[Rfam]
RNA sequence: GGACUCGGUGCCGCCCGACAUCAAGAACGUAAGAAACGAGGGUGAGAACCCUUCCCACCCACCCCAAACCCCGAGGCGCUCACUCGGACGGGUGAUCGGCGCCAACUCAGCUGGCGCAUAUGCCAGUUCGCGGUGCAAGCUCGCCCUCGACAACCGAAGACAUGGAACGGCCCCCGCCGGGACGGCAAUCCCAGUGCGAGGGCCUAACACCAAGGAAGAAAGCACCUUCCCG
Numbered sequence: 001g002g003a004c005u006c007g008g009u010g011c012c013g014c015c016c017g018a019c020a021u022c023a024a025g026a027a028c029g030u031a032a033g034a035a036a037c038g039a040g041g042g043u044g045a046g047a048a049c050c051c052u053u054c055c056c057a058c059c060c061a062c063c064c065c066a067a068a069c070c071c072c073g074a075g076g077c078g079c080u081c082a083c084u085c086g087g088a089c090g091g092g093u094g095a096u097c098g099g100c101g102c103c104a105a106c107u108c109a110g111c112u113g114g115c116g117c118a119u120a121u122g123c124c125a126g127u128u129c130g131c132g133g134u135g136c137a138a139g140c141u142c143g144c145c146c147u148c149g150a151c152a153a154c155c156g157a158a159g160a161c162a163u164g165g166a167a168c169g170g171c172c173c174c175c176g177c178c179g180g181g182a183c184g185g186c187a188a189u190c191c192c193a194g195u196g197c198g199a200g201g202g203c204c205u206a207a208c209a210c211c212a213a214g215g216a217a218g219a220a221a222g223c224a225c226c227u228u229c230c231c232g
Stems, first nucleotide, its partner, number of pairs: 007211004017071001080095006110140003169204005175198003179192004214230005
Rfam assigns this 232-nucleotide sequence from Streptomyces formicae to the family "Streptomyces sRNA 4677".
About the family: Located in the intergenic region between anti-sigma factor SCO4677 gene and a putative regulatory protein gene SCO4676. scr4677 expression requires the SCO4677 activity and scr4677 sRNA itself seem to affect the levels of the SCO4676-associated transcripts.
The family has 12 seed sequences and 563 matches in Rfam 15.1.
The organism belongs to Streptomyces, within Bacteria.